A member of the RNA family "Small nucleolar RNA R44/J54/Z268 family" from Durio zibethinus, 88 nucleotides long.
NCBI's taxonomy places the organism under Eukaryota, Spermatophyta, rosids, malvids, Durio.
It is annotated as a C/D-box small nucleolar RNA.

RNA sequence: UGUGCAAGUGACGAUAAAAUAGACAGGGACAUCAGUAACCAUUGGAGGAUGAUGAGUUGUCUAUGAAUGGGAAUCUCUCUGAGGCACA
Numbered sequence: 001u002g003u004g005c006a007a008g009u010g011a012c013g014a015u016a017a018a019a020u021a022g023a024c025a026g027g028g029a030c031a032u033c034a035g036u037a038a039c040c041a042u043u044g045g046a047g048g049a050u051g052a053u054g055a056g057u058u059g060u061c062u063a064u065g066a067a068u069g070g071g072a073a074u075c076u077c078u079c080u081g082a083g084g085c086a087c088a
Base pairs, nucleotide, nucleotide: 002087003086004085005084